nhaA-I RNA: a 58-nucleotide RNA sequence from Paucibacter sp. KBW04. Acidobacteria, Alphaproteobacteria, Betaproteobacteria and Gammaproteobacteria, Verrucomicrobia, cand. division NC10.
[Rfam]
RNA sequence: GGGUGCAAAGCUCGCAUAUGGCAGGGCAGCAGGUUUUAGCGAUGGUCGGGCCGCCUCG
Number, nucleotide and partner (000 for none) at each position: 001g000002g000003g000004u000005g030006c029007a000008a000009a000010g027011c026012u025013c000014g000015c000016a000017u000018a000019u000020g000021g000022c000023a000024g000025g012026g011027c010028a000029g006030c005031a000032g000033g000034u000035u000036u000037u000038a000039g000040c058041g057042a056043u000044g055045g054046u053047c000048g000049g000050g000051c000052c000053g046054c045055c044056u042057c041058g040